[Rfam]
RNA sequence: CGUUAUGAUGAUUACCAUAUAUCAAAUGCAUAGUUCAACUGAAAUCUUCGGAUUGCUGAACGAAAACAUAUACCAUCUUUCACCUUGUCUGAUG
Numbered sequence: 001c002g003u004u005a006u007g008a009u010g011a012u013u014a015c016c017a018u019a020u021a022u023c024a025a026a027u028g029c030a031u032a033g034u035u036c037a038a039c040u041g042a043a044a045u046c047u048u049c050g051g052a053u054u055g056c057u058g059a060a061c062g063a064a065a066a067c068a069u070a071u072a073c074c075a076u077c078u079u080u081c082a083c084c085u086u087g088u089c090u091g092a093u094g
Base pairs, nucleotide, nucleotide: 008018009017010016033061034060035059036058037057043054044053045052046051

The record is a 94-nucleotide RNA sequence from Aspergillus ruber, which matches "A. fumigatus snoRNA Afu_263" in Rfam.
On this family, see Jochl et al., Nucleic Acids Res 2008: "Small ncRNA transcriptome analysis from Aspergillus fumigatus suggests a novel mechanism for regulation of protein synthesis".
The organism belongs to Aspergillus ruber, within Eukaryota.
A search with the family's covariance model found it, with a score of 88 bits.